[Rfam]
RNA sequence: ACUGGCAUAAUGAUGAGAACCUUUGCCGUUUACCCAUCUGAAUGGUUUUUGAUGCAUAUUUUUGAAUCUGAUAUGCCAGU
Numbered sequence: 001a002c003u004g005g006c007a008u009a010a011u012g013a014u015g016a017g018a019a020c021c022u023u024u025g026c027c028g029u030u031u032a033c034c035c036a037u038c039u040g041a042a043u044g045g046u047u048u049u050u051g052a053u054g055c056a057u058a059u060u061u062u063u064g065a066a067u068c069u070g071a072u073a074u075g076c077c078a079g080u
Stems, first nucleotide, its partner, number of pairs: 001080007
The record is an 80-nucleotide RNA from Sakesphorus luctuosus, which matches "Small nucleolar RNA SNORD87" in Rfam. The organism belongs to Sakesphorus, within Eukaryota. The literature on the family includes a 2002 paper in Gene by Gogolevskaya et al., "U87 RNA, a novel C/D box small nucleolar RNA from mammalian cells". Rfam classes the family as a C/D-box small nucleolar RNA.